mir-3492 microRNA precursor family: a 78-nucleotide sequence from Schistosoma margrebowiei.
Lineage of the source: Eukaryota > Opisthokonta > Protostomia > Spiralia > Schistosoma.
RNA sequence: AUCCUUCUGAAUCCGUGCCGAGAUUUCAUCAAACACCAGACCGUCAGUACCGAUGAGACCCCCAAGAUAAGCGGAGCG
Numbered sequence: 001a002u003c004c005u006u007c008u009g010a011a012u013c014c015g016u017g018c019c020g021a022g023a024u025u026u027c028a029u030c031a032a033a034c035a036c037c038a039g040a041c042c043g044u045c046a047g048u049a050c051c052g053a054u055g056a057g058a059c060c061c062c063c064a065a066g067a068u069a070a071g072c073g074g075a076g077c078g
Stems, first nucleotide, its partner, number of pairs: 003076001005074002008071001011068003016064002020061001022059001024058007